A member of the RNA family "MIR2912 microRNA precursor family" from Populus alba, 157 nucleotides long.
Rfam links the family to the GO terms miRNA-mediated post-transcriptional gene silencing and RISC complex.
Pairs were carried over by alignment from the consensus structure, which was predicted with RNAalifold.
The organism belongs to Populus, within Eukaryota.
[Rfam]
RNA sequence: UUUAGAACUUGAGAUAUGGGCUGAACAUUGAACAGUGUAUGGGCUGCAGAACAGAUUCAGACUUCUUCAUUGUUGCUAUAAUUUGGACUUGAAAAUGGCCUUUUUUAAAUCUUGGAUUCCACAUUAAAGUUGUAGGCCUAUGUCUUAACUUUCCAUC
Numbered sequence: 001u002u003u004a005g006a007a008c009u010u011g012a013g014a015u016a017u018g019g020g021c022u023g024a025a026c027a028u029u030g031a032a033c034a035g036u037g038u039a040u041g042g043g044c045u046g047c048a049g050a051a052c053a054g055a056u057u058c059a060g061a062c063u064u065c066u067u068c069a070u071u072g073u074u075g076c077u078a079u080a081a082u083u084u085g086g087a088c089u090u091g092a093a094a095a096u097g098g099c100c101u102u103u104u105u106u107a108a109a110u111c112u113u114g115g116a117u118u119c120c121a122c123a124u125u126a127a128a129g130u131u132g133u134a135g136g137c138c139u140a141u142g143u144c145u146u147a148a149c150u151u152u153c154c155a156u157c
Base pairs, nucleotide, nucleotide: 003155005153006152007151009147011146012145013144014143015142016141017140018139019138020137021135022134023133025131027130028129029128035124036123037122041120042119043118045116048113049112051110054106055105059101060100062098063097072088073087074086
Dot-bracket structure: ..(.(((.(.(((((((((((((.(.(((.....(((...(((.(..((.(..((...((.((........(((...........)))........)).))...))...).))..).))).)))...)))).))).)))))))))))...))).)..